[Rfam]
RNA sequence: UGAUGACCAACCUGUUUUAUGUCGCGGAAGAGUUCUUGAAGACUAUAUUCAUCACCCAAGGCUGAAUUUAAGAC
Numbered sequence: 001u002g003a004u005g006a007c008c009a010a011c012c013u014g015u016u017u018u019a020u021g022u023c024g025c026g027g028a029a030g031a032g033u034u035c036u037u038g039a040a041g042a043c044u045a046u047a048u049u050c051a052u053c054a055c056c057c058a059a060g061g062c063u064g065a066a067u068u069u070a071a072g073a074c
Base pairs, nucleotide, nucleotide: 001070002069003068027035028034029033